[Rfam]
RNA sequence: UACGAUAAGGGCAAACCUAUUGAAAGAUAGGGACGCAAAGCCACGGGCCUAAAACGAUGGCAGCCGGGUUACCGAAA
Numbered sequence: 001u002a003c004g005a006u007a008a009g010g011g012c013a014a015a016c017c018u019a020u021u022g023a024a025a026g027a028u029a030g031g032g033a034c035g036c037a038a039a040g041c042c043a044c045g046g047g048c049c050u051a052a053a054a055c056g057a058u059g060g061c062a063g064c065c066g067g068g069u070u071a072c073c074g075a076a077a
Stems, first nucleotide, its partner, number of pairs: 001077001003074002011036002016031006034063001039070004044066003047061003
c-di-GMP-I-GGC riboswitch aptamer: a 77-nucleotide sequence from Desulfotomaculum nigrificans. The source organism's lineage runs through Bacteria, Bacillota, Desulfotomaculaceae, Desulfotomaculum and Desulfotomaculum nigrificans. The family is grouped with related families in Rfam's "c-di-GMP_I riboswitch clan". The family's consensus secondary structure is taken from published work.